The family of this 84-nucleotide RNA sequence from Scleropages formosus is "mir-25 microRNA precursor family". The match comes from Rfam's covariance-model search (66 bits). Rfam links the family to the GO terms miRNA-mediated post-transcriptional gene silencing and RISC complex. The family has 3 seed sequences and 311 matches in Rfam 15.1.
[Rfam]
RNA sequence: AGCUGGUGUUGGGAGGCGGAGACCUGAGCAAUUGCCGACUACCUCUGAGGGCAUUGCACUUGUCUCGGUCUGACAGUGCCGGUA
Numbered sequence: 001a002g003c004u005g006g007u008g009u010u011g012g013g014a015g016g017c018g019g020a021g022a023c024c025u026g027a028g029c030a031a032u033u034g035c036c037g038a039c040u041a042c043c044u045c046u047g048a049g050g051g052c053a054u055u056g057c058a059c060u061u062g063u064c065u066c067g068g069u070c071u072g073a074c075a076g077u078g079c080c081g082g083u084a
Base pairs, nucleotide, nucleotide: 002083003082004081006079007078008077009076014071015070016069017068019066020065021064022063023062028057029056030055031054032053034052035051036050037046